RNA sequence: AAUUCAAAUUCGUCAAAUCCUGGAUUUGAAGCGGAGGAACCAAUUUUUGGGGCUAAUCUUUAUGAAAGACAUCUUCCAGUCUUAGCCCGUCAGCUAACUCCGUCGGCACUGGAAGGGGCCCCC
Numbered sequence: 001a002a003u004u005c006a007a008a009u010u011c012g013u014c015a016a017a018u019c020c021u022g023g024a025u026u027u028g029a030a031g032c033g034g035a036g037g038a039a040c041c042a043a044u045u046u047u048u049g050g051g052g053c054u055a056a057u058c059u060u061u062a063u064g065a066a067a068g069a070c071a072u073c074u075u076c077c078a079g080u081c082u083u084a085g086c087c088c089g090u091c092a093g094c095u096a097a098c099u100c101c102g103u104c105g106g107c108a109c110u111g112g113a114a115g116g117g118g119c120c121c122c123c
Stems, first nucleotide, its partner, number of pairs: 012107003018030001020028001031103006041049002050088003058064001067082004